[Rfam]
RNA sequence: UAAUGAGCCCCCAGUGUGCUUGGGUCUGCUGUGACCCUGCAUUCCUACAGUGCUUGCCAGAACAAUUUGAAAUGGUUUGAGGCUUUAUCCUGCUCCAUCCAGGGUAAGGUUAUAGAAAUUUCAGACAAUG
Dot-bracket structure: ...(((((........(((..(((((......))))).)))..........)))))...........(((((..........((((((.(((.......))).)))))).........))))).......
RNA: Small nucleolar RNA SNORA9
Organism: Castor canadensis